[Rfam]
RNA sequence: AGUAUGCCGUCGCUGAAUUCCUAAGAGAAGCGGAGAACCCAAUCACAGGGGUGAAUCAUCAGUCUUUCACUGAUGUAGGGAAUGCCUGCUCCCGAACCCGUCAGCUAACUCCGUAAGCGUUGCGGGCAGUUUUA
Numbered sequence: 001a002g003u004a005u006g007c008c009g010u011c012g013c014u015g016a017a018u019u020c021c022u023a024a025g026a027g028a029a030g031c032g033g034a035g036a037a038c039c040c041a042a043u044c045a046c047a048g049g050g051g052u053g054a055a056u057c058a059u060c061a062g063u064c065u066u067u068c069a070c071u072g073a074u075g076u077a078g079g080g081a082a083u084g085c086c087u088g089c090u091c092c093c094g095a096a097c098c099c100g101u102c103a104g105c106u107a108a109c110u111c112c113g114u115a116a117g118c119g120u121u122g123c124g125g126g127c128a129g130u131u132u133u134a
Stems, first nucleotide, its partner, number of pairs: 011119004018029003030114006040048001049099003057075004078093004
Dot-bracket structure: ..........((((...(((......)))((((((....(.......)(((.....((((...........))))..((((........))))...))).........)))))).))))...............

The record is a 134-nucleotide RNA from Alicyclobacillus tolerans, which matches "c-di-AMP riboswitch aptamer (ydaO/yuaA leader)" in Rfam. The organism belongs to Alicyclobacillus, within Bacteria.